This 307-nucleotide sequence from Punica granatum belongs to the Rfam family "Plant signal recognition particle RNA". A reference for the family is Wild et al. (2002), "Towards the structure of the mammalian signal recognition particle", Curr Opin Struct Biol. Taxonomically the source falls in Punica (Eukaryota, Embryophyta, Mesangiospermae, malvids).
[Rfam]
RNA sequence: ACCGGGCUGGGCAACGCCUGCCUGUAACCCAAGUGGGGGCUUUGAGGUGGUGGAAUGUGGGCCUGGAUUCUUUGGGUUGGGUCUUGUUGUGCUGAUAUCUGGUCUGCCCGUUCCAAGCUGAGAGGUGGGCAACGUGGCCCUGUCGUAGGAUUGGGCUUCGUGGGCUCCUAGAGUGGAGGGGACCGCGUGAGGCUGGUUUCACAGAGCAGCGAAAACCUCCCGCUCCCAGCAGUGGAAGGAUAACGGGCCGUUGCUUCGCAGGCCCGCCGUGGCCCAAUGAGUCAAUCCCGCCUAGACCGUCACCCUU
Dot-bracket structure: .((((((.((......)).))))....(((....)))))....(.((((((((..(((((...(((..((.(((((((.((.(((((.(.(.((.....(((((((.((.(((((.((((.(((..((((.(((.(((((.(((....))).))))).)))..))))(....).(((((......(((....(((......)))....)))....)))))..))).))))..)))))))....))))))).))).).))))).)).....))))))).)).)))...)))..))..)))))))).).
Numbered sequence: 001a002c003c004g005g006g007c008u009g010g011g012c013a014a015c016g017c018c019u020g021c022c023u024g025u026a027a028c029c030c031a032a033g034u035g036g037g038g039g040c041u042u043u044g045a046g047g048u049g050g051u052g053g054a055a056u057g058u059g060g061g062c063c064u065g066g067a068u069u070c071u072u073u074g075g076g077u078u079g080g081g082u083c084u085u086g087u088u089g090u091g092c093u094g095a096u097a098u099c100u101g102g103u104c105u106g107c108c109c110g111u112u113c114c115a116a117g118c119u120g121a122g123a124g125g126u127g128g129g130c131a132a133c134g135u136g137g138c139c140c141u142g143u144c145g146u147a148g149g150a151u152u153g154g155g156c157u158u159c160g161u162g163g164g165c166u167c168c169u170a171g172a173g174u175g176g177a178g179g180g181g182a183c184c185g186c187g188u189g190a191g192g193c194u195g196g197u198u199u200c201a202c203a204g205a206g207c208a209g210c211g212a213a214a215a216c217c218u219c220c221c222g223c224u225c226c227c228a229g230c231a232g233u234g235g236a237a238g239g240a241u242a243a244c245g246g247g248c249c250g251u252u253g254c255u256u257c258g259c260a261g262g263c264c265c266g267c268c269g270u271g272g273c274c275c276a277a278u279g280a281g282u283c284a285a286u287c288c289c290g291c292c293u294a295g296a297c298c299g300u301c302a303c304c305c306u307u
Stems, first nucleotide, its partner, number of pairs: 002039002004023004009018002028037003044306001046304008056294002058290003064284003069280002072277007080265002083262005089256001091254001093253002100250007108239002111237005117230004122225003127167004132161003136157005142151003168173001175220005186211003193204003